[Rfam]
RNA sequence: CCAACUAUUCCGUUAGUUGAGCCAAGUAUCAACUGCAUGUUAGCCAUGUGGUAAGCUGAUACGUAAGGUAGCCCUACUUUAAGGUCGAACCGUGAGGGGAGACCGAUACUGCUAGCAACAAAGCGGUUAGGGAG
Numbered sequence: 001c002c003a004a005c006u007a008u009u010c011c012g013u014u015a016g017u018u019g020a021g022c023c024a025a026g027u028a029u030c031a032a033c034u035g036c037a038u039g040u041u042a043g044c045c046a047u048g049u050g051g052u053a054a055g056c057u058g059a060u061a062c063g064u065a066a067g068g069u070a071g072c073c074c075u076a077c078u079u080u081a082a083g084g085u086c087g088a089a090c091c092g093u094g095a096g097g098g099g100a101g102a103c104c105g106a107u108a109c110u111g112c113u114a115g116c117a118a119c120a121a122a123g124c125g126g127u128u129a130g131g132g133a134g
Stems, first nucleotide, its partner, number of pairs: 002019006027061005032052008083104004090097002108127006
Notes:
This 134-nucleotide RNA from Streptococcus pasteurianus belongs to the Rfam family "Group II catalytic intron D1-D4-7". Pairs were carried over by alignment from the consensus structure. From the family's description: Group II introns are found in rRNA, tRNA and mRNA of organelles in fungi, plants and protists, and also in mRNA in bacteria. The literature on the family includes a 2001 paper in Trends Genet by Bonen and Vogel, "The ins and outs of group II introns".